[Rfam]
RNA sequence: AGGGCAGACCGCUCUAUCGCUGUUUCAGGUAAACUGGAAGAGAGGAAAGUCCGGGCAACGCAGGGCACCAUGCUUCCUAACGGGAAGAAGGGCGAAAGCUUUUAGCCGCGUAACAGAAAAUAACCGUCCGGCCCUGCCGGAUAAGGGUGAAAAGGUGAGGUAAGAGCUCACCGGUUUCGGGGGUGAUCCCGAAAGCCGUACGCGUCAUGGGUUGCAAAGCCAAAUAUAUCACGGCCGGCAAAUGUUGCCGACAGGGUUGCCCGCCCUGUUCUGACCGUCAGGUCAGUCCCGGUUCGUCCGGGAGUCGUGAGGGGUAGGCUGCUAGAUCGCACCAGCAAUGUUGCGGCCAGAUAAAUGAUAGAGGUUUCCGGUUUUCCGGAGAUACAGAACCCGGCUUACAGGUCUGCUUUUUUU
Numbered sequence: 001a002g003g004g005c006a007g008a009c010c011g012c013u014c015u016a017u018c019g020c021u022g023u024u025u026c027a028g029g030u031a032a033a034c035u036g037g038a039a040g041a042g043a044g045g046a047a048a049g050u051c052c053g054g055g056c057a058a059c060g061c062a063g064g065g066c067a068c069c070a071u072g073c074u075u076c077c078u079a080a081c082g083g084g085a086a087g088a089a090g091g092g093c094g095a096a097a098g099c100u101u102u103u104a105g106c107c108g109c110g111u112a113a114c115a116g117a118a119a120a121u122a123a124c125c126g127u128c129c130g131g132c133c134c135u136g137c138c139g140g141a142u143a144a145g146g147g148u149g150a151a152a153a154g155g156u157g158a159g160g161u162a163a164g165a166g167c168u169c170a171c172c173g174g175u176u177u178c179g180g181g182g183g184u185g186a187u188c189c190c191g192a193a194a195g196c197c198g199u200a201c202g203c204g205u206c207a208u209g210g211g212u213u214g215c216a217a218a219g220c221c222a223a224a225u226a227u228a229u230c231a232c233g234g235c236c237g238g239c240a241a242a243u244g245u246u247g248c249c250g251a252c253a254g255g256g257u258u259g260c261c262c263g264c265c266c267u268g269u270u271c272u273g274a275c276c277g278u279c280a281g282g283u284c285a286g287u288c289c290c291g292g293u294u295c296g297u298c299c300g301g302g303a304g305u306c307g308u309g310a311g312g313g314g315u316a317g318g319c320u321g322c323u324a325g326a327u328c329g330c331a332c333c334a335g336c337a338a339u340g341u342u343g344c345g346g347c348c349a350g351a352u353a354a355a356u357g358a359u360a361g362a363g364g365u366u367u368c369c370g371g372u373u374u375u376c377c378g379g380a381g382a383u384a385c386a387g388a389a390c391c392c393g394g395c396u397u398a399c400a401g402g403u404c405u406g407c408u409u410u411u412u413u414u
Base pairs, nucleotide, nucleotide: 001410002409003408004407005406006405007404008403009402010401011399012363013362014361015360016359017358018357020042021041023039024038025037026036027035028034047397048396049395051394052393053392054391055390056214057213058212059211063297065295068210069209070208071207072206073087074086075085076084077083088103090101091100092099093098104205108203109202110201111200112199124146125145126142127141128140129139130138131137132136154172155171156170157169158168159167174196175194176193177192178191179190180189181188182187218320219319220318221317229310230309231308232307233306288302289301290300291299292298327346328345329344330343331342333340334339